[Rfam]
RNA: Bacterial RNase P class A
RNA sequence: CCAGAGGGUCGGGCGGCCGCGGGUGCGCAAGCACGCGAGGAAAGUCCGGGCUCCACGGAAACACGGUGCCGGGUAAUGCCCGGCGGGGGCGACCCCAGGGAAAGUGCCACAGAGAGCAGACCGCCUACCUCCUGCAAGGAGCGGCAAGGGUGAAAGGGUGCGGCAAGAGCGCACCGCGCGACCGGCAACGGAAGCGGCAUGGCAAACCCCACCGGGAGCAAGACCGAAUAGGGGCGGCGCAUGGGCCUGGUUCCGGCCCGUCGCCCGGGUUGGUUGCUGGAGCGGCGGAGCGAUCCGUCGCCUAGAGGAAUGGUCGCACAUCGCCGUCAGGCGAGGACAGAACCCGGCUUAUAGACCCUCUGGCAUU
Numbered sequence: 001c002c003a004g005a006g007g008g009u010c011g012g013g014c015g016g017c018c019g020c021g022g023g024u025g026c027g028c029a030a031g032c033a034c035g036c037g038a039g040g041a042a043a044g045u046c047c048g049g050g051c052u053c054c055a056c057g058g059a060a061a062c063a064c065g066g067u068g069c070c071g072g073g074u075a076a077u078g079c080c081c082g083g084c085g086g087g088g089g090c091g092a093c094c095c096c097a098g099g100g101a102a103a104g105u106g107c108c109a110c111a112g113a114g115a116g117c118a119g120a121c122c123g124c125c126u127a128c129c130u131c132c133u134g135c136a137a138g139g140a141g142c143g144g145c146a147a148g149g150g151u152g153a154a155a156g157g158g159u160g161c162g163g164c165a166a167g168a169g170c171g172c173a174c175c176g177c178g179c180g181a182c183c184g185g186c187a188a189c190g191g192a193a194g195c196g197g198c199a200u201g202g203c204a205a206a207c208c209c210c211a212c213c214g215g216g217a218g219c220a221a222g223a224c225c226g227a228a229u230a231g232g233g234g235c236g237g238c239g240c241a242u243g244g245g246c247c248u249g250g251u252u253c254c255g256g257c258c259c260g261u262c263g264c265c266c267g268g269g270u271u272g273g274u275u276g277c278u279g280g281a282g283c284g285g286c287g288g289a290g291c292g293a294u295c296c297g298u299c300g301c302c303u304a305g306a307g308g309a310a311u312g313g314u315c316g317c318a319c320a321u322c323g324c325c326g327u328c329a330g331g332c333g334a335g336g337a338c339a340g341a342a343c344c345c346g347g348c349u350u351a352u353a354g355a356c357c358c359u360c361u362g363g364c365a366u367u
Stems, first nucleotide, its partner, number of pairs: 001363010011352001013317006020037002023034004042350003046347005051218004059252002062249001064214005069083005084098001085096004099209002104207002106203003121149002123145003129141005157175006176198001177196003182191003222275004232266006243259005282301008